[Rfam]
RNA sequence: GCAAACUCGUGACUUCAGUCGUGAGUAAGUAACCUCGUAUAGUCAGCAUGUACAGAAAUGUGCAUGUAGAGGCGGACACAAGAGCCGUCCAAUAUCACUUGAAUUGCUGGAAACCCCUAAAGCUAACUAAACUACAACAUAUAACCUUAAAUGGUUACAGUGUGAACGUUGCGAAAGCAGAAAAAAUUAGUUAGAUGGCAUAAGGAGCAUUUUAUUGCGACCGUGGUUAAAACCUAAGUGUCUAAACAAUGGGCAAUCAGCAGGUAAGACCGAAAGGUAAACUUCAACGACUAUUCCUCUUGAGGGAAGUACACUACAAGCUAUUGGUAGUGGAAGUGGGUGACGCUUAACAUGUAAUGAUGAAGAUGAAGAUAUAGUCUGUGCUUAUAUGAAAGUAUAAG
Number, nucleotide and partner (000 for none) at each position: 001g000002c000003a000004a000005a026006c025007u024008c023009g022010u021011g020012a019013c018014u000015u000016c000017a000018g013019u012020c011021g010022u009023g008024a007025g006026u005027a000028a000029g000030u000031a000032a000033c000034c000035u000036c000037g000038u000039a000040u000041a000042g000043u000044c000045a000046g000047c000048a000049u000050g000051u000052a000053c000054a000055g000056a000057a000058a000059u000060g000061u000062g000063c000064a000065u000066g000067u000068a000069g000070a000071g000072g000073c000074g000075g000076a000077c000078a000079c000080a000081a000082g000083a000084g000085c000086c000087g000088u000089c000090c000091a000092a000093u000094a000095u343096c342097a341098c340099u000100u338101g337102a000103a000104u000105u262106g261107c260108u259109g258110g257111a000112a000113a000114c000115c253116c252117c251118u000119a000120a000121a000122g000123c000124u000125a000126a000127c000128u000129a000130a000131a000132c000133u000134a000135c000136a000137a000138c000139a000140u000141a000142u000143a000144a000145c000146c000147u000148u000149a000150a000151a000152u000153g000154g000155u000156u000157a000158c000159a000160g000161u000162g000163u000164g000165a000166a000167c000168g000169u000170u000171g000172c000173g000174a000175a000176a000177g000178c000179a000180g000181a000182a000183a000184a000185a000186a000187u000188u000189a000190g000191u000192u000193a000194g000195a000196u000197g000198g000199c000200a000201u000202a000203a000204g000205g000206a000207g000208c000209a000210u000211u000212u000213u000214a000215u000216u000217g000218c000219g000220a000221c000222c000223g000224u000225g000226g000227u000228u000229a000230a000231a000232a000233c000234c000235u000236a000237a000238g000239u000240g000241u000242c000243u000244a000245a000246a000247c000248a000249a000250u000251g117252g116253g115254c000255a000256a000257u110258c109259a108260g107261c106262a105263g283264g282265u000266a000267a000268g278269a000270c276271c000272g000273a000274a000275a000276g270277g000278u268279a000280a000281a000282c264283u263284u000285c000286a000287a380288c000289g379290a378291c377292u376293a375294u000295u000296c000297c000298u000299c000300u000301u000302g000303a000304g000305g000306g000307a000308a000309g000310u000311a000312c000313a000314c000315u000316a000317c000318a000319a000320g000321c000322u000323a000324u000325u000326g000327g000328u000329a000330g000331u000332g000333g000334a000335a000336g000337u101338g100339g000340g098341u097342g096343a095344c000345g000346c365347u364348u363349a000350a361351c000352a000353u000354g000355u000356a000357a000358u000359g000360a000361u350362g000363a348364a347365g346366a000367u000368g000369a000370a000371g000372a000373u000374a000375u293376a292377g291378u290379c289380u287381g000382u000383g000384c000385u000386u399387a398388u397389a396390u395391g000392a000393a000394a000395g390396u389397a388398u387399a386400a000401g000

Description: Rfam assigns this 401-nucleotide RNA sequence from Candidatus Parepulonipiscium sp. PG-Nuni2H_MBin01 to the family "Group I catalytic intron". Rfam links the family to the GO term Group I intron splicing. The base pairs follow the family's consensus structure, which is taken from published work. The literature on the family includes a 1990 paper in Annu Rev Biochem by Cech, "Self-splicing of group I introns".